[Rfam]
Rfam assigns this 103-nucleotide RNA sequence from Pontibacter diazotrophicus to the family "SAM riboswitch aptamer (S box leader)". Rfam describes the family as follows. The SAM riboswitch is found upstream of a number of genes which code for proteins involved in methionine or cysteine biosynthesis in Gram-positive bacteria. NCBI's taxonomy places the organism under Bacteria, Cytophagia, Cytophagales, Hymenobacteraceae, Pontibacter. Its family is annotated with regulation of gene expression in the Gene Ontology.
RNA sequence: AAUUUAUAGACGAAGAGGCGAGAGAACAGGCUCCCAGACCCUCUGGCAACCAUCCGUUUUGGAAAGGUGCCAAGUCCUGCCCAACGAAGGGGAAAUAUAAAUU
Number, nucleotide and partner (000 for none) at each position: 001a103002a102003u101004u100005u099006a098007u097008a096009g000010a000011c000012g000013a000014a044015g043016a042017g041018g040019c000020g000021a000022g033023a032024g031025a000026a000027c079028a078029g077030g076031c024032u023033c022034c000035c000036a000037g000038a000039c000040c018041c017042u016043c015044u014045g071046g070047c069048a068049a000050c067051c066052a000053u063054c062055c061056g000057u000058u000059u000060u000061g055062g054063a053064a000065a000066g051067g050068u048069g047070c046071c045072a000073a000074g000075u095076c030077c029078u028079g027080c092081c091082c090083a000084a000085c000086g000087a000088a000089g000090g082091g081092g080093a000094a000095a075096u008097a007098u006099a005100a004101a003102u002103u001